[Rfam]
RNA sequence: UGCAGCCCAGUCAAAUUCGGUCCCUGUCCCGCAGUGUCGGGGACCGGCCACCGGCUGCCACAGCAAGCCCCGUGCUCCGCGUGUCCCCUGUCCCCUCCUGGGAGCUGGGGAGGCGGAGCCCCACGGACACUG
Numbered sequence: 001u002g003c004a005g006c007c008c009a010g011u012c013a014a015a016u017u018c019g020g021u022c023c024c025u026g027u028c029c030c031g032c033a034g035u036g037u038c039g040g041g042g043a044c045c046g047g048c049c050a051c052c053g054g055c056u057g058c059c060a061c062a063g064c065a066a067g068c069c070c071c072g073u074g075c076u077c078c079g080c081g082u083g084u085c086c087c088c089u090g091u092c093c094c095c096u097c098c099u100g101g102g103a104g105c106u107g108g109g110g111a112g113g114c115g116g117a118g119c120c121c122c123a124c125g126g127a128c129a130c131u132g
Stems, first nucleotide, its partner, number of pairs: 002058004018046009028036001072124003075118003084110004